[Rfam]
RNA sequence: UACUAAUGAUGAACGGCUAAGAUCGCCACGUCCUGUGGCAACGCCGUUCUAAUCCACAUCCUGUGGA
Numbered sequence: 001u002a003c004u005a006a007u008g009a010u011g012a013a014c015g016g017c018u019a020a021g022a023u024c025g026c027c028a029c030g031u032c033c034u035g036u037g038g039c040a041a042c043g044c045c046g047u048u049c050u051a052a053u054c055c056a057c058a059u060c061c062u063g064u065g066g067a
Stems, first nucleotide, its partner, number of pairs: 011049007025039005053067005
A member of the RNA family "Bacillaceae-1 RNA" from Peribacillus cavernae, 67 nucleotides long.